RNA sequence: CGGGACCGACUCUUCCCCCCGGAGUCGGACCGUCGGACGGCCCCCGCCUUUCCCCCCUGGCGGGGGCCGUCCCCU
Number, nucleotide and partner (000 for none) at each position: 001c000002g034003g033004g031005a000006c028007c027008g026009a025010c024011u023012c022013u000014u000015c000016c000017c000018c000019c000020c000021g000022g012023a011024g010025u009026c008027g007028g006029a000030c000031c004032g000033u003034c002035g000036g071037a070038c069039g068040g067041c066042c065043c064044c063045c062046g061047c060048c059049u000050u000051u000052c000053c000054c000055c000056c000057c000058u000059g048060g047061c046062g045063g044064g043065g042066g041067c040068c039069g038070u037071c036072c000073c000074c000075u000
Source information:
The record is a 75-nucleotide sequence from Thermobifida fusca, which matches "6C RNA" in Rfam. Gene Ontology term of the family: sporulation.